[Rfam]
RNA sequence: UUCUUAUCAAGAGAGGUGGAGGGACUGGCCCUAUGAAGCCUCGGCAGCGGGUUCUUUUUAGAAUACUGUGCCAAAUCCUGCAGGAGUUUUCUUGGGAGAUAAGAA
Number, nucleotide and partner (000 for none) at each position: 001u105002u104003c103004u102005u101006a100007u099008c098009a000010a000011g000012a000013g042014a041015g040016g039017u038018g000019g000020a000021g031022g030023g029024a000025c080026u000027g078028g077029c023030c022031c021032u000033a000034u000035g000036a000037a000038g017039c016040c015041u014042c013043g072044g071045c070046a069047g000048c068049g067050g064051g000052u062053u061054c000055u000056u000057u000058u000059u000060a000061g053062a052063a000064u050065a000066c000067u049068g048069u046070g045071c044072c043073a000074a000075a000076u097077c028078c027079u000080g025081c094082a093083g092084g091085a090086g000087u000088u000089u000090u085091c084092u083093u082094g081095g000096g000097a076098g008099a007100u006101a005102a004103g003104a002105a001
The record is a 105-nucleotide RNA from Fonticella tunisiensis, which matches "SAM riboswitch aptamer (S box leader)" in Rfam. The match comes from Rfam's covariance-model search (93 bits). The organism belongs to Fonticella, within Bacteria. Rfam's curators write: The SAM riboswitch is found upstream of a number of genes which code for proteins involved in methionine or cysteine biosynthesis in Gram-positive bacteria.